[Rfam]
RNA sequence: UUGGCAUUCAUGAAGGCGUGGCCUUAAAGCGGAUCUGCCGGGCUGUGCCGGAUGUCUCCGCCUC
Numbered sequence: 001u002u003g004g005c006a007u008u009c010a011u012g013a014a015g016g017c018g019u020g021g022c023c024u025u026a027a028a029g030c031g032g033a034u035c036u037g038c039c040g041g042g043c044u045g046u047g048c049c050g051g052a053u054g055u056c057u058c059c060g061c062c063u064c
Stems, first nucleotide, its partner, number of pairs: 003062003015049010030037002
Dot-bracket structure: ..(((.........((((((((((.....((....))..))))))))))..........)))..

The record is a 64-nucleotide RNA from Xiphophorus maculatus, which matches "Selenocysteine insertion sequence 1" in Rfam. The literature on the family includes a 1996 paper in RNA by Walczak et al., "A novel RNA structural motif in the selenocysteine insertion element of eukaryotic selenoprotein mRNAs". The incorporation of selenocysteine into a protein sequence is directed by an in-frame UGA codon (usually a stop codon) within the coding region of the mRNA. Selenoprotein mRNAs contain a conserved secondary structure in the 3' UTR that is required for the distinction of UGA stop from UGA selenocysteine. The selenocysteine insertion sequence (SECIS) is around 60 nt in length and adopts a hairpin structure which is sufficiently well-defined and conserved to act as a computational screen for selenoprotein genes. Pairs were carried over by alignment from the consensus structure, which is taken from published work.